c-di-GMP-I riboswitch aptamer: a 93-nucleotide sequence from a Clostridiales bacterium. Lineage of the source: Bacteria > Bacillati > Bacillota > Clostridia > Eubacteriales. It scores 57 bits against the family's covariance model. Rfam's curators write: GEMM was predicted in a large-scale screen for bacterial structured RNA regulatory elements. Genes associated with GEMM are involved in a diverse array of functions, including chemotaxis regulation, signal transduction, secretion and chitin.
RNA sequence: CCCCGAAAAAGGCACCGCACGUCGAAAGGCGUGCCUCGCAAAGUCACGGGUCUACCGGAAGCUCACGCUUCCUACGACAGCCGGACUACCGGG
Numbered sequence: 001c002c003c004c005g006a007a008a009a010a011g012g013c014a015c016c017g018c019a020c021g022u023c024g025a026a027a028g029g030c031g032u033g034c035c036u037c038g039c040a041a042a043g044u045c046a047c048g049g050g051u052c053u054a055c056c057g058g059a060a061g062c063u064c065a066c067g068c069u070u071c072c073u074a075c076g077a078c079a080g081c082c083g084g085a086c087u088a089c090c091g092g093g
Stems, first nucleotide, its partner, number of pairs: 012039002017034005023028001042087004047083003050078003057072006
Dot-bracket structure: ...........((...(((((.(....).)))))...))..((((.((((((....((((((....))))))...)))..)))))))......